The family of this 150-nucleotide sequence from Litchfieldia stipae is "ylbH leader". The literature on the family includes a 2004 paper in Proc Natl Acad Sci U S A by Barrick et al., "New RNA motifs suggest an expanded scope for riboswitches in bacterial genetic control". NCBI's taxonomy places the organism under Bacteria, Bacillati, Bacillota, Bacilli, Litchfieldia. The match comes from Rfam's covariance-model search (104 bits).
RNA sequence: AACAAAAAAACCCUGCAGAAACGAGUUCUGCAGGGUCCUUCUAUAUCCAUGAGAUAUUUGUUACGAUCACAAACCUUUUCAUGGUAGAAGGCAAAGGGAGAGGAGAAACCGGAGGAAGAACUUAUGGGGAAACGUAAGUCUUCUCCGCGG
Number, nucleotide and partner (000 for none) at each position: 001a000002a000003c000004a000005a000006a000007a000008a000009a000010a000011c035012c034013c033014u032015g031016c030017a029018g028019a027020a000021a000022c000023g000024a000025g000026u000027u019028c018029u017030g016031c015032a014033g013034g012035g011036u098037c097038c096039u095040u094041c000042u000043a000044u000045a085046u000047c084048c083049a082050u081051g080052a079053g078054a077055u000056a000057u000058u000059u000060g000061u000062u000063a000064c000065g000066a000067u000068c000069a000070c000071a000072a000073a000074c000075c000076u000077u054078u053079u052080c051081a050082u049083g048084g047085u045086a000087g000088a000089a000090g000091g000092c000093a000094a040095a039096g038097g037098g036099a000100g000101a000102g000103g000104a000105g000106a000107a000108a000109c000110c147111g146112g145113a144114g000115g143116a142117a141118g140119a000120a139121c138122u137123u136124a135125u000126g000127g000128g000129g000130a000131a000132a000133c000134g000135u124136a123137a122138g121139u120140c118141u117142u116143c115144u113145c112146c111147g110148c000149g000150g000